The record is a 379-nucleotide sequence from Ciceribacter lividus, which matches "Alphaproteobacteria transfer-messenger RNA" in Rfam. Rfam classes the family as a non-coding RNA gene. It scores 310 bits against the family's covariance model.
[Rfam]
RNA sequence: ACCCUUUUCAUCCGCCCCGGAACGACCUAUAUGGGGAGUGCCGGCUCUCGGGCCGGCUAUGGCAAUAAACGGUCGGUGUAAUAAACCUAUUGGACCCGGGGGCGGUACCCGGCGCCUCCACCAAAAACCGGUCGGUGACGGAGCUCUUUCCGGACCGGCUUUUGAUGGGGGCGAAAUAGGAUCGACAAGGGCGUAAAGAUCGAACUUUUGCUCGGCAUGAUACCGCCGUUAUCGGGUCACAAGAGUAGUUGCAAACGACAACAACGCUCAGGGUUAUGCUCUCGCUGCCUAAUGGCGGUGCGGGAAACCCACACUAAAGCCCUUCUGGUUAGCACCUGAAGGCGGGGUUCGAAGGCACCUGGCAACAGAAGCCUUCACC
Numbered sequence: 001a002c003c004c005u006u007u008u009c010a011u012c013c014g015c016c017c018c019g020g021a022a023c024g025a026c027c028u029a030u031a032u033g034g035g036g037a038g039u040g041c042c043g044g045c046u047c048u049c050g051g052g053c054c055g056g057c058u059a060u061g062g063c064a065a066u067a068a069a070c071g072g073u074c075g076g077u078g079u080a081a082u083a084a085a086c087c088u089a090u091u092g093g094a095c096c097c098g099g100g101g102g103c104g105g106u107a108c109c110c111g112g113c114g115c116c117u118c119c120a121c122c123a124a125a126a127a128c129c130g131g132u133c134g135g136u137g138a139c140g141g142a143g144c145u146c147u148u149u150c151c152g153g154a155c156c157g158g159c160u161u162u163u164g165a166u167g168g169g170g171g172c173g174a175a176a177u178a179g180g181a182u183c184g185a186c187a188a189g190g191g192c193g194u195a196a197a198g199a200u201c202g203a204a205c206u207u208u209u210g211c212u213c214g215g216c217a218u219g220a221u222a223c224c225g226c227c228g229u230u231a232u233c234g235g236g237u238c239a240c241a242a243g244a245g246u247a248g249u250u251g252c253a254a255a256c257g258a259c260a261a262c263a264a265c266g267c268u269c270a271g272g273g274u275u276a277u278g279c280u281c282u283c284g285c286u287g288c289c290u291a292a293u294g295g296c297g298g299u300g301c302g303g304g305a306a307a308c309c310c311a312c313a314c315u316a317a318a319g320c321c322c323u324u325c326u327g328g329u330u331a332g333c334a335c336c337u338g339a340a341g342g343c344g345g346g347g348u349u350c351g352a353a354g355g356c357a358c359c360u361g362g363c364a365a366c367a368g369a370a371g372c373c374u375u376c377a378c379c
Base pairs, nucleotide, nucleotide: 040057041056042055043054044053045052046051061212062211063210064209065208071205073203074202075201076200077199086191087190088189090188091187092186096112097111098110099109100108113173114172115171116170117169118168119167213228214227215226216225218239219238220237223235224234345360346359347358348357351376352375353374354373355372356371